[Rfam]
RNA: glmS glucosamine-6-phosphate activated ribozyme aptamer
Organism: Halalkalibacterium halodurans
RNA sequence: AUGACAGUUGAAGCGCCAGGACUAUUCCACGGACGGUAACGGAAUAGUUGACGAGGAGAGGGUUUAUCGAAGGUUCGGCGGAUGCCCUCCGGUUGCACAUGACAGCCGCAAGCUUUUGUAAAAAACAGAGGGGCGACCUUCUGGACAAAGGCAAAAGCGUUCAUGCUA
Numbered sequence: 001a002u003g004a005c006a007g008u009u010g011a012a013g014c015g016c017c018a019g020g021a022c023u024a025u026u027c028c029a030c031g032g033a034c035g036g037u038a039a040c041g042g043a044a045u046a047g048u049u050g051a052c053g054a055g056g057a058g059a060g061g062g063u064u065u066a067u068c069g070a071a072g073g074u075u076c077g078g079c080g081g082a083u084g085c086c087c088u089c090c091g092g093u094u095g096c097a098c099a100u101g102a103c104a105g106c107c108g109c110a111a112g113c114u115u116u117u118g119u120a121a122a123a124a125a126c127a128g129a130g131g132g133g134c135g136a137c138c139u140u141c142u143g144g145a146c147a148a149a150g151g152c153a154a155a156a157g158c159g160u161u162c163a164u165g166c167u168a
Stems, first nucleotide, its partner, number of pairs: 020049009058089005067078004090108006112158007126143007